[Rfam]
Shown here is a 124-nucleotide RNA, a member of the family "DUF3800-III RNA".
The family's consensus secondary structure is taken from published work.
The family's RNA type in Rfam is small RNA.

RNA sequence: AAACCAGUCUCGUAAGGCUUGGAUACGGUUGCUCCUAUGUAAGUAGGUGAUACUCCGUCGGCGUAAGCCCGCUUGGCGCGACAAGCGUGAACGGUGAGAAUCGACCCCCAAGGUGAGCUGGUUU
Numbered sequence: 001a002a003a004c005c006a007g008u009c010u011c012g013u014a015a016g017g018c019u020u021g022g023a024u025a026c027g028g029u030u031g032c033u034c035c036u037a038u039g040u041a042a043g044u045a046g047g048u049g050a051u052a053c054u055c056c057g058u059c060g061g062c063g064u065a066a067g068c069c070c071g072c073u074u075g076g077c078g079c080g081a082c083a084a085g086c087g088u089g090a091a092c093g094g095u096g097a098g099a100a101u102c103g104a105c106c107c108c109c110a111a112g113g114u115g116a117g118c119u120g121g122u123u124u
Base pairs, nucleotide, nucleotide: 001124002123003122004121005120006119007118009117010116011115012114018112019111020110021109022108027106028105029104034047035046036045037044038043070087071086072085073084074083075082